[Rfam]
The family of this 164-nucleotide RNA from Stanieria cyanosphaera is "Antisense RNA which regulates isiA expression".
Nucleotides: 164
Base pairs, nucleotide, nucleotide: 123160124159125158126157127156130155131154133152134151
Number, partner (000 for none) and nucleotide at each position: 001000g002000u003000u004000a005000a006000a007000g008000g009000a010000u011000u012000u013000a014000a015000a016000g017000u018000a019000g020000g021000c022000u023000c024000g025000g026000u027000g028000a029000c030000u031000a032000c033000u034000c035000g036000c037000a038000c039000g040000u041000c042000u043000u044000g045000a046000a047000u048000a049000u050000u051000g052000a053000c054000a055000u056000c057000g058000u059000a060000u061000a062000g063000u064000c065000c066000a067000c068000c069000c070000c071000a072000g073000a074000a075000c076000a077000u078000a079000g080000c081000u082000u083000u084000g085000c086000c087000c088000a089000c090000u091000a092000g093000c094000a095000g096000c097000a098000a099000u100000g101000c102000a103000c104000c105000u106000a107000u108000g109000c110000c111000u112000a113000g114000a115000a116000a117000u118000a119000a120000c121000a122000a123160a124159u125158g126157a127156u128000g129000a130155c131154c132000g133152a134151g135000a136000a137000u138000g139000a140000u141000a142000c143000c144000c145000a146000g147000u148000u149000g150000u151134u152133u153000a154131g155130g156127a157126u158125c159124a160123u161000c162000c163000c164000a
On this family, see Duhring et al., Proc Natl Acad Sci U S A 2006: "An internal antisense RNA regulates expression of the photosynthesis gene isiA".
Lineage of the source: Bacteria > Cyanobacteriota > Pleurocapsales > Stanieria > Stanieria cyanosphaera.